[Rfam]
Rfam assigns this 72-nucleotide RNA sequence from Alligator mississippiensis to the family "Mammalian CPEB3 ribozyme". The source organism's lineage runs through Eukaryota, Euteleostomi, Sauria, Archelosauria and Alligator. The family's consensus secondary structure is taken from published work.

RNA sequence: AGAGGUUCAAGGCCAUAGCAGAAGCACUUGAGGUGUUGCCCCUCAGAUUCCAAAGAAUCUGUGAAUUUUGAU
Numbered sequence: 001a002g003a004g005g006u007u008c009a010a011g012g013c014c015a016u017a018g019c020a021g022a023a024g025c026a027c028u029u030g031a032g033g034u035g036u037u038g039c040c041c042c043u044c045a046g047a048u049u050c051c052a053a054a055g056a057a058u059c060u061g062u063g064a065a066u067u068u069u070g071a072u
Stems, first nucleotide, its partner, number of pairs: 011040003017072001019070005024036003044061007